[Rfam]
RNA sequence: GGGAAAAGACUUGGCAAGAUGUUGGCAAAGCUGUUUGUGUUUGUGCCCUGCUAUGCCUCCAUAUUGCCACUUUUUUGCUUC
Numbered sequence: 001g002g003g004a005a006a007a008g009a010c011u012u013g014g015c016a017a018g019a020u021g022u023u024g025g026c027a028a029a030g031c032u033g034u035u036u037g038u039g040u041u042u043g044u045g046c047c048c049u050g051c052u053a054u055g056c057c058u059c060c061a062u063a064u065u066g067c068c069a070c071u072u073u074u075u076u077g078c079u080u081c
Stems, first nucleotide, its partner, number of pairs: 005076005012069006019062003024057004029052003
Dot-bracket structure: ....(((((..((((((.(((..((((.(((..................))).))))..))).))))))..))))).....